RNA sequence: AGAGUAAGUCAGCUUAAUUCAGCAUGUAAGGCUGAAGCGGAGGAACCAAUUUAUGGGGCGUAUCUCUACAUUUUAGAGAGGGGCAUCUCUCAGCCCUAGCCCGUCAGCUAACUUCGUAAGCAUUGAGAGGAGACUGA
Numbered sequence: 001a002g003a004g005u006a007a008g009u010c011a012g013c014u015u016a017a018u019u020c021a022g023c024a025u026g027u028a029a030g031g032c033u034g035a036a037g038c039g040g041a042g043g044a045a046c047c048a049a050u051u052u053a054u055g056g057g058g059c060g061u062a063u064c065u066c067u068a069c070a071u072u073u074u075a076g077a078g079a080g081g082g083g084c085a086u087c088u089c090u091c092a093g094c095c096c097u098a099g100c101c102c103g104u105c106a107g108c109u110a111a112c113u114u115c116g117u118a119a120g121c122a123u124u125g126a127g128a129g130g131a132g133a134c135u136g137a
Stems, first nucleotide, its partner, number of pairs: 012121003018036006037117006047055002056102003064078004081096004
The record is a 137-nucleotide sequence from Atlanticothrix silvestris, which matches "c-di-AMP riboswitch aptamer (ydaO/yuaA leader)" in Rfam. The organism belongs to Atlanticothrix silvestris, within Bacteria. This family represents a conserved RNA structure found upstream of the ydaO and yuaA genes in Bacillus subtilis and related genes in other bacteria.